[Rfam]
RNA sequence: CAGCAUGUUCCCAAGGUUUAUGGCUGGUGGUAGCCAUGGGAUCUCCAACUGCAUGCAAGAAUAACCUGGAGAGACUUUGACAGCACAGGUCAGCAUAAUACCUGUAGCUGCCACUCAACUUUCCUAUAUUU
Numbered sequence: 001c002a003g004c005a006u007g008u009u010c011c012c013a014a015g016g017u018u019u020a021u022g023g024c025u026g027g028u029g030g031u032a033g034c035c036a037u038g039g040g041a042u043c044u045c046c047a048a049c050u051g052c053a054u055g056c057a058a059g060a061a062u063a064a065c066c067u068g069g070a071g072a073g074a075c076u077u078u079g080a081c082a083g084c085a086c087a088g089g090u091c092a093g094c095a096u097a098a099u100a101c102c103u104g105u106a107g108c109u110g111c112c113a114c115u116c117a118a119c120u121u122u123c124c125u126a127u128a129u130u131u
Stems, first nucleotide, its partner, number of pairs: 011039002016035001018033004068124006083111002086104004

The family of this 131-nucleotide RNA from Erinaceus europaeus is "Small nucleolar RNA SNORA44". The base pairs follow the family's consensus structure, which was predicted with PFOLD. Rfam's curators write: ACA44 is a member of the H/ACA class of snoRNA that guide the sites of modification of uridines to pseudouridines.